[Rfam]
RNA sequence: GAUGCGAAUCCGCUCCGAGCCCGGAGACCUAAAAGGUGUCGGCCCGCCUCAUGGAUUCGGGACGGGGUGCAGCUGGAAACGGCUGUGCCACCCUGCUGGAAAGGAGUUCUCCUACCUAAGGC
Numbered sequence: 001g002a003u004g005c006g007a008a009u010c011c012g013c014u015c016c017g018a019g020c021c022c023g024g025a026g027a028c029c030u031a032a033a034a035g036g037u038g039u040c041g042g043c044c045c046g047c048c049u050c051a052u053g054g055a056u057u058c059g060g061g062a063c064g065g066g067g068u069g070c071a072g073c074u075g076g077a078a079a080c081g082g083c084u085g086u087g088c089c090a091c092c093c094u095g096c097u098g099g100a101a102a103g104g105a106g107u108u109c110u111c112c113u114a115c116c117u118a119a120g121g122c
Stems, first nucleotide, its partner, number of pairs: 004115001006113001012107005020061005026056001028054002034049005066089010091099002
A member of the RNA family "Molybdenum/Tungsten riboswitch aptamer (Moco RNA motif)" from Desulfobotulus alkaliphilus, 122 nucleotides long. Its family is annotated with regulation of gene expression, molybdenum ion binding and tungstate binding in the Gene Ontology. A search with the family's covariance model found it, with a score of 44 bits.